[Rfam]
RNA sequence: UGUUAAAAAUUUCAUCCAUUUUUACUAUUAAAAAUUGAUCCAUUUACGUCAGCAUGAGGUACACAUGGCACGUCACGUCACUAUCUUGUUAUUUCAUUAUCCAUGCUAGUUUUUAACUAUACAAAUGGAUGAAAUUUUUAGCA
Numbered sequence: 001u002g003u004u005a006a007a008a009a010u011u012u013c014a015u016c017c018a019u020u021u022u023u024a025c026u027a028u029u030a031a032a033a034a035u036u037g038a039u040c041c042a043u044u045u046a047c048g049u050c051a052g053c054a055u056g057a058g059g060u061a062c063a064c065a066u067g068g069c070a071c072g073u074c075a076c077g078u079c080a081c082u083a084u085c086u087u088g089u090u091a092u093u094u095c096a097u098u099a100u101c102c103a104u105g106c107u108a109g110u111u112u113u114u115a116a117c118u119a120u121a122c123a124a125a126u127g128g129a130u131g132a133a134a135u136u137u138u139u140a141g142c143a
Base pairs, nucleotide, nucleotide: 002142003141004140005139006138007137008136009135010134011133012132013131014130015129016128018126019125020124021123023121024120028116029115030114031113032112033111
RNA: MIR7502 microRNA precursor family